[Rfam]
RNA sequence: GAUUUAUACAGAAGAGGUGAGAGGACAGGCUCGAAGACCCUCUGGCAACCUACAGCUCUGCAAGGUGCCAAUUCCUGCCCAAAAGAAGGGACAUAUAAAUU
Number, nucleotide and partner (000 for none) at each position: 001g101002a100003u099004u098005u097006a096007u095008a094009c000010a000011g000012a000013a043014g042015a041016g040017g039018u000019g000020a000021g032022a031023g030024g000025a000026c077027a076028g075029g074030c023031u022032c021033g000034a000035a000036g000037a000038c000039c017040c016041u015042c014043u013044g069045g068046c067047a066048a000049c065050c064051u062052a000053c060054a059055g000056c000057u000058c000059u054060g053061c000062a051063a000064g050065g049066u047067g046068c045069c044070a000071a000072u000073u093074c029075c028076u027077g026078c090079c089080c088081a000082a000083a000084a000085g000086a000087a000088g080089g079090g078091a000092c000093a073094u008095a007096u006097a005098a004099a003100u002101u001

SAM riboswitch aptamer (S box leader): a 101-nucleotide sequence from Flammeovirgaceae bacterium 311. It scores 69 bits against the family's covariance model. Lineage of the source: Bacteria > Pseudomonadati > Bacteroidota > Cytophagales > Flammeovirgaceae. The base pairs follow the family's consensus structure, which is taken from published work.